RNA sequence: GGCAAGGAUUUUACGAUUAAGAAGCAACUGUCUCUUGUAUAAAUCGUGAAUGAAUUU
Numbered sequence: 001g002g003c004a005a006g007g008a009u010u011u012u013a014c015g016a017u018u019a020a021g022a023a024g025c026a027a028c029u030g031u032c033u034c035u036u037g038u039a040u041a042a043a044u045c046g047u048g049a050a051u052g053a054a055u056u057u
Base pairs, nucleotide, nucleotide: 018037019036020035021034022033024031025030

The record is a 57-nucleotide sequence from Trachelium caeruleum, which matches "Plastid-rps18 3UTR RNA" in Rfam. About the family: Plastid rps18 is a non-coding RNA (ncRNA) present in plastids. It was identified as a short stem-loop motif in the 3 prime untranslate region (3UTR) of rps18 gene. The family's RNA type in Rfam is cis-regulatory element.